[Rfam]
RNA sequence: GGUCAGAACGAAGGUCUGCUUUUCGAAGGCUCACUCCACUGUGGCGCGCGGGCGUUUACGCGCGUGUCGCCAUCCCCCCCCCUCUCCCCCUCCCCCUGCCUUCGGGGAAAGUCCCCGGACACUGGGUAGCAAGUACCCGCUGUCAACGUUGUCCCUCUGCCAUGUAGAGUACGAUCGCGAAGAGGAACGCCCCGUGUGCGUGGUUGGGCCUCCGUCCUCGGCGGCCCUCCCAUAUGUUAUGUGCACAGGGCCGACUGAGCGUAGUCCGACUCUUGGGCGGUGAAUCGUCAUAGCACAGUCAUGCAGACUUGGUCCGGCCGCUCUUCUCUCUCGUUGCGGAGGGCGACGGUCCAAAACUCGACGGGGCUUAUUCUUUUUCUGAC
Numbered sequence: 001g002g003u004c005a006g007a008a009c010g011a012a013g014g015u016c017u018g019c020u021u022u023u024c025g026a027a028g029g030c031u032c033a034c035u036c037c038a039c040u041g042u043g044g045c046g047c048g049c050g051g052g053c054g055u056u057u058a059c060g061c062g063c064g065u066g067u068c069g070c071c072a073u074c075c076c077c078c079c080c081c082c083u084c085u086c087c088c089c090c091u092c093c094c095c096c097u098g099c100c101u102u103c104g105g106g107g108a109a110a111g112u113c114c115c116c117g118g119a120c121a122c123u124g125g126g127u128a129g130c131a132a133g134u135a136c137c138c139g140c141u142g143u144c145a146a147c148g149u150u151g152u153c154c155c156u157c158u159g160c161c162a163u164g165u166a167g168a169g170u171a172c173g174a175u176c177g178c179g180a181a182g183a184g185g186a187a188c189g190c191c192c193c194g195u196g197u198g199c200g201u202g203g204u205u206g207g208g209c210c211u212c213c214g215u216c217c218u219c220g221g222c223g224g225c226c227c228u229c230c231c232a233u234a235u236g237u238u239a240u241g242u243g244c245a246c247a248g249g250g251c252c253g254a255c256u257g258a259g260c261g262u263a264g265u266c267c268g269a270c271u272c273u274u275g276g277g278c279g280g281u282g283a284a285u286c287g288u289c290a291u292a293g294c295a296c297a298g299u300c301a302u303g304c305a306g307a308c309u310u311g312g313u314c315c316g317g318c319c320g321c322u323c324u325u326c327u328c329u330c331u332c333g334u335u336g337c338g339g340a341g342g343g344c345g346a347c348g349g350u351c352c353a354a355a356a357c358u359c360g361a362c363g364g365g366g367c368u369u370a371u372u373c374u375u376u377u378u379c380u381g382a383c
Stems, first nucleotide, its partner, number of pairs: 002383007010375002014308006023105007109369003113366004125137004139152002142149002155279001157277001161275002166271002173266002176261003249255001310353003314349002
A member of the RNA family "RNase MRP" from Fonticula alba, 383 nucleotides long. The family's RNA type in Rfam is ribozyme. Clan: RNaseP clan. A search with the family's covariance model found it, with a score of 89 bits.